[Rfam]
Nucleotides: 104
Base pairs, nucleotide, nucleotide: 001030002029003028004026005025006024007023008022010021011020072100073099074098075096076095077094078093079092081091082090083089
Number, partner (000 for none) and nucleotide at each position: 001030g002029a003028g004026a005025u006024a007023g008022u009000a010021u011020u012000c013000u014000u015000u016000a017000a018000g019000g020011a021010a022008a023007c024006u025005a026004u027000a028003c029002u030001c031000u032000u033000a034000c035000u036000u037000g038000a039000u040000u041000u042000u043000a044000u045000g046000c047000a048000u049000g050000u051000a052000a053000a054000a055000c056000a057000u058000a059000a060000g061000u062000u063000a064000a065000a066000a067000u068000u069000a070000a071000u072100g073099a074098g075096c076095u077094u078093a079092u080000a081091u082090u083089a084000u085000a086000u087000a088000u089083u090082g091081a092079a093078u094077a095076a096075g097000a098074c099073u100072c101000g102000g103000a104000u
This 104-nucleotide RNA from Aminipila terrae belongs to the Rfam family "pan motif". Lineage of the source: Bacteria > Bacillati > Peptostreptococcales > Anaerovoracaceae > Aminipila. A search with the family's covariance model found it, with a score of 39 bits. Pairs were carried over by alignment from the consensus structure, which is taken from published work.